Rfam assigns this 36-nucleotide RNA from Dokdonia pacifica to the family "DUF805b RNA". The match comes from Rfam's covariance-model search (40 bits).
RNA sequence: UAAGGGGGAGCCGAAAACCUUUUACUAGAGUAGGUA
Numbered sequence: 001u002a003a004g005g006g007g008g009a010g011c012c013g014a015a016a017a018c019c020u021u022u023u024a025c026u027a028g029a030g031u032a033g034g035u036a
Stems, first nucleotide, its partner, number of pairs: 002021004010035003